[Rfam]
RNA sequence: GGGGACGUUACGGAUUCGACAGGCACAGUCGAGCUUGAAUUGCGUUUCGUAGGUUACGUCUACGUAAAAACGUUACAGUUAAAUAUAACUGCUAAAAACGAAAACAACUCUUACGCUUUAGCUGCCUAAAAACAGUUAGCGUAGAUCCUCUCGGCAUCGCCCAUGUGCUCGAGUAAGGGUCCUAACUUUAGUGGGAUACGUUUCAACUUUCCGUCUGUAAGUUGAAAAAGAGAACAUCAGACUAGCGAUACAGAAUGCCUGUCACUCGGCAAGCUGUAAAGUGAAUCCUUAAAUGAGUUGACUAUGAACGUAGAUUUUUAAGUGGCGAUGUGUUUGGACGCGGGUUCGACUCCCGCCGUCUCCAUUG
Numbered sequence: 001g002g003g004g005a006c007g008u009u010a011c012g013g014a015u016u017c018g019a020c021a022g023g024c025a026c027a028g029u030c031g032a033g034c035u036u037g038a039a040u041u042g043c044g045u046u047u048c049g050u051a052g053g054u055u056a057c058g059u060c061u062a063c064g065u066a067a068a069a070a071c072g073u074u075a076c077a078g079u080u081a082a083a084u085a086u087a088a089c090u091g092c093u094a095a096a097a098a099c100g101a102a103a104a105c106a107a108c109u110c111u112u113a114c115g116c117u118u119u120a121g122c123u124g125c126c127u128a129a130a131a132a133c134a135g136u137u138a139g140c141g142u143a144g145a146u147c148c149u150c151u152c153g154g155c156a157u158c159g160c161c162c163a164u165g166u167g168c169u170c171g172a173g174u175a176a177g178g179g180u181c182c183u184a185a186c187u188u189u190a191g192u193g194g195g196a197u198a199c200g201u202u203u204c205a206a207c208u209u210u211c212c213g214u215c216u217g218u219a220a221g222u223u224g225a226a227a228a229a230g231a232g233a234a235c236a237u238c239a240g241a242c243u244a245g246c247g248a249u250a251c252a253g254a255a256u257g258c259c260u261g262u263c264a265c266u267c268g269g270c271a272a273g274c275u276g277u278a279a280a281g282u283g284a285a286u287c288c289u290u291a292a293a294u295g296a297g298u299u300g301a302c303u304a305u306g307a308a309c310g311u312a313g314a315u316u317u318u319u320a321a322g323u324g325g326c327g328a329u330g331u332g333u334u335u336g337g338a339c340g341c342g343g344g345u346u347c348g349a350c351u352c353c354c355g356c357c358g359u360c361u362c363c364a365u366u367g
Base pairs, nucleotide, nucleotide: 001363002362003361004360005359006358007357020336021335022334023333024332025331026330027329033323034322035321036320037319038318039317043310044309045308046307047306048064049063050062051061052060053076054075056073057072058071059070118139119138120137121136122135123134124133144181145180146179147178148177149176150173151172152171153170154168155167156166157165160195161194162193163192164191201227202226203225204224205223206222207221208220209219213242214241215240216239217238245282246281249278250277251276252275253274257270258269259268261302262301263300264299266296267295340356341355342354343353344352

The record is a 367-nucleotide sequence from Enterococcus faecium, which matches "transfer-messenger RNA" in Rfam. Bacterial tmRNA, also known as 10Sa RNA or SsrA, is named for its dual tRNA and mRNA-like properties. Its role is to liberate the mRNA from a stalled ribosome. To accomplish this part of the tmRNA is used as a reading frame that ends in a translation stop signal. The broken mRNA is replaced in the ribosome by the tmRNA and translation of the tmRNA leads to addition of a proteolysis tag to the incomplete protein enabling recognition by a protease. A reference for the family is Williams and Bartel (1996), "Phylogenetic analysis of tmRNA secondary structure", RNA. The base pairs follow the family's consensus structure, which is taken from published work.